[Rfam]
The record is a 121-nucleotide sequence, which matches "DUF3800-I RNA" in Rfam. It is one of the family's seed sequences. From the family's description: Actinobacteria, Firmicutes, Fusobacteria, Proteobacteria (1 example), Tenericutes (2 examples). It is annotated as a small RNA.
RNA sequence: UAGAAUUACAGGUAUAAGUACACUGUUUAAACAUCUGAAUUGUGAUUAAAGCAAUUAAGCGUAUGUUAAGUACGUCGCACUCAGAUGGGAAAGCGCCAUUAGGUGCUUUUUUUUGUAACUU
Numbered sequence: 001u002a003g004a005a006u007u008a009c010a011g012g013u014a015u016a017a018g019u020a021c022a023c024u025g026u027u028u029a030a031a032c033a034u035c036u037g038a039a040u041u042g043u044g045a046u047u048a049a050a051g052c053a054a055u056u057a058a059g060c061g062u063a064u065g066u067u068a069a070g071u072a073c074g075u076c077g078c079a080c081u082c083a084g085a086u087g088g089g090a091a092a093g094c095g096c097c098a099u100u101a102g103g104u105g106c107u108u109u110u111u112u113u114u115g116u117a118a119c120u121u
Base pairs, nucleotide, nucleotide: 007029008026009025010024011023012021013020014019032087033086034085035084036083037082041079042078043077044076045055046054047053059075060074061073062072063071064070088111089110090109091108092107093106094105095104096103097102